[Rfam]
RNA: Mammalian CPEB3 ribozyme
Organism: Alligator sinensis
RNA sequence: CUUUCAUGUAAUGGCUAUAGCAGAAACGUUCACAACAUGGCCCCUGUCAGAUUCCAACGAAUCUGCAGAUUCUGCU
Numbered sequence: 001c002u003u004u005c006a007u008g009u010a011a012u013g014g015c016u017a018u019a020g021c022a023g024a025a026a027c028g029u030u031c032a033c034a035a036c037a038u039g040g041c042c043c044c045u046g047u048c049a050g051a052u053u054c055c056a057a058c059g060a061a062u063c064u065g066c067a068g069a070u071u072c073u074g075c076u
Stems, first nucleotide, its partner, number of pairs: 013042004019076007026038001028036001048065007